[Rfam]
RNA: M-box riboswitch aptamer (ykoK leader)
RNA sequence: UUUUCUGCUCGGUAGGCGAGGCUCCUACAAGGAUACAGGCUGCUGCCGCGAAAGAUUGGAGACAAUCUUAGCUGGUAAACAGGUUUGGCCGAAUCAAGGCUUAACCUAAUGCAGCUUUUAAGCCCUGUAGUGCCAAAGCUUGUACGAGGUUUAAUAAG
Numbered sequence: 001u002u003u004u005c006u007g008c009u010c011g012g013u014a015g016g017c018g019a020g021g022c023u024c025c026u027a028c029a030a031g032g033a034u035a036c037a038g039g040c041u042g043c044u045g046c047c048g049c050g051a052a053a054g055a056u057u058g059g060a061g062a063c064a065a066u067c068u069u070a071g072c073u074g075g076u077a078a079a080c081a082g083g084u085u086u087g088g089c090c091g092a093a094u095c096a097a098g099g100c101u102u103a104a105c106c107u108a109a110u111g112c113a114g115c116u117u118u119u120a121a122g123c124c125c126u127g128u129a130g131u132g133c134c135a136a137a138g139c140u141u142g143u144a145c146g147a148g149g150u151u152u153a154a155u156a157a158g
Stems, first nucleotide, its partner, number of pairs: 006153002010149001011145001013097001015140003020134003025130005031124002039115005046074001048072002055066004082106004088100003